[Rfam]
RNA sequence: AACUAUAGUAACGCCACAAGCCUACUAUGUUUGAUUUUUACGAUCAGCUUCUUAUCUGCUUCGGCAAAUACAAAACUUAGAUUUGAUGUAUUGCAGAGUAUGAAUAUAGAACGCAUGUCAAA
Numbered sequence: 001a002a003c004u005a006u007a008g009u010a011a012c013g014c015c016a017c018a019a020g021c022c023u024a025c026u027a028u029g030u031u032u033g034a035u036u037u038u039u040a041c042g043a044u045c046a047g048c049u050u051c052u053u054a055u056c057u058g059c060u061u062c063g064g065c066a067a068a069u070a071c072a073a074a075a076c077u078u079a080g081a082u083u084u085g086a087u088g089u090a091u092u093g094c095a096g097a098g099u100a101u102g103a104a105u106a107u108a109g110a111a112c113g114c115a116u117g118u119c120a121a122a
Base pairs, nucleotide, nucleotide: 001031002030004029005028006027007026008025009024010023013021014020057066058065059064083121084120085119086118087117092115093114094113
Rfam assigns this 122-nucleotide sequence to the family "Bacteriophage Diversity-Generating Retroelement RNA". The literature on the family includes a 2025 paper in Nature by Handa et al., "RNA control of reverse transcription in a diversity-generating retroelement". Rfam classes the family as a small RNA.